[Rfam]
RNA sequence: UUCUCGCGUGAGUGAUUGAGGCGUUAUCCUUUUUUGAGGAACGAAAAAAAGAUAUAGCCGAAAGCACGACCCAGC
Numbered sequence: 001u002u003c004u005c006g007c008g009u010g011a012g013u014g015a016u017u018g019a020g021g022c023g024u025u026a027u028c029c030u031u032u033u034u035u036g037a038g039g040a041a042c043g044a045a046a047a048a049a050a051g052a053u054a055u056a057g058c059c060g061a062a063a064g065c066a067c068g069a070c071c072c073a074g075c
Stems, first nucleotide, its partner, number of pairs: 012067003016063002021058002026053003030048007
The family of this 75-nucleotide RNA sequence from Flavobacterium psychrophilum is "Flavo-1 RNA". The base pairs follow the family's consensus structure, which is taken from published work.